RNA: mir-30 microRNA precursor family
RNA sequence: CACGGUGCUGUAAACAUCCUUGACUGGAAGCUUGUGUUUUAACAGUGAGGGCUUUCAGUCGGAUGUUUGCAGCUUCUUA
Numbered sequence: 001c002a003c004g005g006u007g008c009u010g011u012a013a014a015c016a017u018c019c020u021u022g023a024c025u026g027g028a029a030g031c032u033u034g035u036g037u038u039u040u041a042a043c044a045g046u047g048a049g050g051g052c053u054u055u056c057a058g059u060c061g062g063a064u065g066u067u068u069g070c071a072g073c074u075u076c077u078u079a
Stems, first nucleotide, its partner, number of pairs: 002078001004076002008072012023059010